[Rfam]
RNA: U4atac minor spliceosomal RNA
RNA sequence: ACCAUCCUUGUCUUGGGGUUGCGCUACUGUUCAAUGAGCGUGUAGCGAGGACAGUGCUGCUAACACCGACACAACACUGACGCAUCCCUGGGGCUUCAGCCCCAAUGUGGUGCAAUUUUUGGAACC
Numbered sequence: 001a002c003c004a005u006c007c008u009u010g011u012c013u014u015g016g017g018g019u020u021g022c023g024c025u026a027c028u029g030u031u032c033a034a035u036g037a038g039c040g041u042g043u044a045g046c047g048a049g050g051a052c053a054g055u056g057c058u059g060c061u062a063a064c065a066c067c068g069a070c071a072c073a074a075c076a077c078u079g080a081c082g083c084a085u086c087c088c089u090g091g092g093g094c095u096u097c098a099g100c101c102c103c104a105a106u107g108u109g110g111u112g113c114a115a116u117u118u119u120u121g122g123a124a125c126c
Stems, first nucleotide, its partner, number of pairs: 006018004021060003026055007038046002082113005089104006